[Rfam]
RNA sequence: UGACCCGGUAGGGCCGGACGCCAAAGAGAAAGAACCGGGGAUAGAACCCAACCCACCCGACCGAGCCCGUCAUCCACCGCACCGCCAGCAGUCCCGCGUCGCUGACUGCUGAUCACUCGGUCGGGUGAUCAGAGCCAAUUCGGCUGGCGGAAAGGCGGAUUGGUCGGGCAGCGUCAGCGCGGACACACAACCGCAAACAUGAAACGGCCCCCGCCGGGACUGGCAUCCCGAACGAGGGCCUCACCACCUAGGAAGACAAGACCUUCCCG
Numbered sequence: 001u002g003a004c005c006c007g008g009u010a011g012g013g014c015c016g017g018a019c020g021c022c023a024a025a026g027a028g029a030a031a032g033a034a035c036c037g038g039g040g041a042u043a044g045a046a047c048c049c050a051a052c053c054c055a056c057c058c059g060a061c062c063g064a065g066c067c068c069g070u071c072a073u074c075c076a077c078c079g080c081a082c083c084g085c086c087a088g089c090a091g092u093c094c095c096g097c098g099u100c101g102c103u104g105a106c107u108g109c110u111g112a113u114c115a116c117u118c119g120g121u122c123g124g125g126u127g128a129u130c131a132g133a134g135c136c137a138a139u140u141c142g143g144c145u146g147g148c149g150g151a152a153a154g155g156c157g158g159a160u161u162g163g164u165c166g167g168g169c170a171g172c173g174u175c176a177g178c179g180c181g182g183a184c185a186c187a188c189a190a191c192c193g194c195a196a197a198c199a200u201g202a203a204a205c206g207g208c209c210c211c212c213g214c215c216g217g218g219a220c221u222g223g224c225a226u227c228c229c230g231a232a233c234g235a236g237g238g239c240c241u242c243a244c245c246a247c248c249u250a251g252g253a254a255g256a257c258a259a260g261a262c263c264u265u266c267c268c269g
Stems, first nucleotide, its partner, number of pairs: 007248003011245001017100004113128006143178005206240005212234002216229004251267005
The family of this 269-nucleotide RNA sequence is "Streptomyces sRNA 4677". Rfam's curators write: Located in the intergenic region between anti-sigma factor SCO4677 gene and a putative regulatory protein gene SCO4676. scr4677 expression requires the SCO4677 activity and scr4677 sRNA itself seem to affect the levels of the SCO4676-associated transcripts. The literature on the family includes a 2014 paper in PLoS One by Hindra et al., "Complex intra-operonic dynamics mediated by a small RNA in Streptomyces coelicolor".